Nucleotides: 052
Base pairs, nucleotide, nucleotide: 005023006022007021008020009019010018011017034052035051036050038049039048040047
Number, partner (000 for none) and nucleotide at each position: 001000g002000g003000g004000u005023g006022c007021c008020g009019c010018c011017c012000g013000g014000c015000a016000g017011g018010g019009g020008u021007g022006g023005c024000a025000g026000g027000c028000a029000u030000u031000g032000c033000g034052c035051g036050a037000a038049g039048g040047u041000c042000g043000g044000g045000c046000c047040g048039c049038c050036u051035c052034g